[Rfam]
RNA: FMN riboswitch aptamer (RFN element)
Organism: Thermobifida halotolerans
RNA sequence: ACGCGUGCUCCGGGGUCGGUGAAAGUCCGAACCGGCGGUGACAGUCCGCGACCCAGCCGAAGCCAUCGGCUGGUUGAACCGGUGGAAUUCCGGUACCGACGGUGAAAGUCCGGAUGGGAGGCAGUGCGU
Numbered sequence: 001a002c003g004c005g006u007g008c009u010c011c012g013g014g015g016u017c018g019g020u021g022a023a024a025g026u027c028c029g030a031a032c033c034g035g036c037g038g039u040g041a042c043a044g045u046c047c048g049c050g051a052c053c054c055a056g057c058c059g060a061a062g063c064c065a066u067c068g069g070c071u072g073g074u075u076g077a078a079c080c081g082g083u084g085g086a087a088u089u090c091c092g093g094u095a096c097c098g099a100c101g102g103u104g105a106a107a108g109u110c111c112g113g114a115u116g117g118g119a120g121g122c123a124g125u126g127c128g129u
Base pairs, nucleotide, nucleotide: 003127004126005125006124009121010120017029018028019027031109032108033098034097035049036048037047038046044096045095053073054072078094079093080092081091082090100112101111102110